A member of the RNA family "Small nucleolar RNA snR42" from Saccharomyces cerevisiae, 351 nucleotides long. The base pairs follow the family's consensus structure, which is taken from published work. The organism belongs to Saccharomyces, within Eukaryota. Gene Ontology terms of the family: RNA processing and nucleolus. The sequence is in the family's curated seed alignment.
Nucleotides: 351
Base pairs, nucleotide, nucleotide: 013209014208015207016206017205018204019203022116023115024114025113026112027111028110030109031108032107033106034105037104038103039102040101041100042099043098044097045085046084047083048082049081054076055075056074057073058072060070061069062068131194132193133192135190140187141186142185143184146182147181148180149179150178151177153175154174155173156172157171158170159169160168161167220255221254222253223252224251225250226249228247229246231245232244233243234242235241259345260344261343262342263341264339265338273331274330275329276328277327278326279325280324281323282322286316287315288314289313290312291311292310293309294306295305296304297303
Number, partner (000 for none) and nucleotide at each position: 001000a002000u003000a004000a005000c006000a007000a008000u009000u010000u011000g012000u013209g014208a015207u016206g017205c018204u019203u020000u021000a022116g023115g024114g025113a026112g027111c028110c029000u030109a031108u032107u033106g034105u035000u036000u037104g038103a039102u040101g041100g042099u043098u044097u045085a046084u047083a048082g049081g050000a051000g052000c053000c054076g055075g056074a057073u058072u059000u060070g061069u062068c063000u064000u065000u066000u067000u068062g069061a070060c071000u072058a073057a074056u075055u076054u077000u078000c079000a080000a081049c082048c083047u084046a085045u086000u087000c088000u089000u090000a091000c092000u093000u094000c095000c096000a097044a098043a099042a100041c101040u102039g103038u104037u105034g106033c107032a108031a109030u110028g111027g112026c113025u114024c115023u116022c117000g118000u119000u120000u121000u122000u123000u124000u125000u126000a127000a128000a129000u130000u131194u132193u133192u134000c135190u136000c137000u138000u139000u140187u141186c142185u143184c144000u145000u146182c147181u148180u149179u150178g151177g152000c153175a154174u155173a156172g157171u158170u159169u160168a161167u162000u163000u164000u165000u166000a167161a168160u169159a170158a171157a172156u173155u174154a175153u176000u177151u178150c179149a180148g181147g182146g183000u184143g185142a186141g187140a188000u189000a190135g191000a192133g193132a194131a195000a196000g197000g198000a199000u200000a201000a202000u203019g204018a205017g206016u207015a208014u209013c210000g211000u212000a213000g214000a215000u216000a217000a218000a219000u220255c221254u222253u223252c224251g225250g226249u227000u228247c229246c230000g231245a232244a233243u234242a235241g236000u237000g238000u239000a240000a241235c242234u243233g244232u245231u246229g247228g248000u249226g250225c251224u252223g253222a254221g255220g256000u257000a258000a259345u260344c261343c262342a263341u264339c265338u266000u267000u268000a269000a270000a271000a272000c273331c274330a275329u276328c277327g278326c279325c280324g281323u282322u283000a284000g285000a286316g287315g288314u289313u290312g291311c292310u293309u294306c295305u296304g297303a298000u299000a300000u301000u302000u303297u304296c305295g306294g307000u308000u309293a310292a311291g312290c313289g314288a315287c316286c317000c318000a319000u320000g321000a322282a323281a324280u325279g326278g327277u328276g329275a330274u331273g332000a333000c334000c335000u336000g337000a338265g339264g340000u341263a342262u343261g344260g345259a346000a347000c348000a349000u350000c351000u